[Rfam]
RNA sequence: GCAGUGGGGCGGUCUGUCGCGCACCUCUUUAGUCUUGUGCUGAAGAGCGUGUGAGGAACGUCCGGGCAACGCAGAGCGCCAUACUUCCUAACGGGAAGCUAUCCGCGAGGGUAGGUAGGUGUAACAGAGAAUGACAGCCACGGAGGACUCGAUCCCCCGCGGUGAUGGUGAAAAGGUGAGGUAAGAGCUCACCGGAGUGUGUAGCAAUACAUACUGCCGUACAUCCUAUGGGUUGCAAGGUCAUGUAAACCGACGCUACGAGGGUUGCUCGCCCCAGUCGGAGGGUAGACCGCACGAGGUGGUAGGUGACUACCAUCCCAGAUAAAUGACAGACACCCGUCGGGUGGGUGACCGCCCACGGGUACAGAACUCGGCUUAUAGCUCCACUGCUUCU
Numbered sequence: 001g002c003a004g005u006g007g008g009g010c011g012g013u014c015u016g017u018c019g020c021g022c023a024c025c026u027c028u029u030u031a032g033u034c035u036u037g038u039g040c041u042g043a044a045g046a047g048c049g050u051g052u053g054a055g056g057a058a059c060g061u062c063c064g065g066g067c068a069a070c071g072c073a074g075a076g077c078g079c080c081a082u083a084c085u086u087c088c089u090a091a092c093g094g095g096a097a098g099c100u101a102u103c104c105g106c107g108a109g110g111g112u113a114g115g116u117a118g119g120u121g122u123a124a125c126a127g128a129g130a131a132u133g134a135c136a137g138c139c140a141c142g143g144a145g146g147a148c149u150c151g152a153u154c155c156c157c158c159g160c161g162g163u164g165a166u167g168g169u170g171a172a173a174a175g176g177u178g179a180g181g182u183a184a185g186a187g188c189u190c191a192c193c194g195g196a197g198u199g200u201g202u203a204g205c206a207a208u209a210c211a212u213a214c215u216g217c218c219g220u221a222c223a224u225c226c227u228a229u230g231g232g233u234u235g236c237a238a239g240g241u242c243a244u245g246u247a248a249a250c251c252g253a254c255g256c257u258a259c260g261a262g263g264g265u266u267g268c269u270c271g272c273c274c275c276a277g278u279c280g281g282a283g284g285g286u287a288g289a290c291c292g293c294a295c296g297a298g299g300u301g302g303u304a305g306g307u308g309a310c311u312a313c314c315a316u317c318c319c320a321g322a323u324a325a326a327u328g329a330c331a332g333a334c335a336c337c338c339g340u341c342g343g344g345u346g347g348g349u350g351a352c353c354g355c356c357c358a359c360g361g362g363u364a365c366a367g368a369a370c371u372c373g374g375c376u377u378a379u380a381g382c383u384c385c386a387c388u389g390c391u392u393c394u
Stems, first nucleotide, its partner, number of pairs: 001390010011379001012334007020053005025047008058377001060375001062374005067235004074270004079231005084098005101112004114226002119224005135167002137163003141159003145155003175193006195217001196215008239291004250281005262274004298317008